A member of the RNA family "Photosynthesis regulatory RNA1" from Anabaena cylindrica, 81 nucleotides long. The organism belongs to Anabaena cylindrica, within Bacteria. Rfam classes the family as a small RNA. The family has 13 seed sequences and 92 matches in Rfam 15.1.

RNA sequence: AAGAUUCUUCGUUUCGGUAUUGGUAUCUAAUCGUCAUUUGGAUUUCUCCUAUCAGCCCCGGCUAGUUUCACCGGGGUUUUU
Numbered sequence: 001a002a003g004a005u006u007c008u009u010c011g012u013u014u015c016g017g018u019a020u021u022g023g024u025a026u027c028u029a030a031u032c033g034u035c036a037u038u039u040g041g042a043u044u045u046c047u048c049c050u051a052u053c054a055g056c057c058c059c060g061g062c063u064a065g066u067u068u069c070a071c072c073g074g075g076g077u078u079u080u081u
Stems, first nucleotide, its partner, number of pairs: 055077007